[Rfam]
RNA: miR-430 microRNA precursor family
Organism: Echeneis naucrates
RNA sequence: AACAUUUCCCGAACUGAAGCACCAACUUGUAUUCUGAGAGCAGUAAGUGCUAUUAGUUGGGGUAAUGUUG
Numbered sequence: 001a002a003c004a005u006u007u008c009c010c011g012a013a014c015u016g017a018a019g020c021a022c023c024a025a026c027u028u029g030u031a032u033u034c035u036g037a038g039a040g041c042a043g044u045a046a047g048u049g050c051u052a053u054u055a056g057u058u059g060g061g062g063u064a065a066u067g068u069u070g
Stems, first nucleotide, its partner, number of pairs: 004066003008062003013057005018051005025044003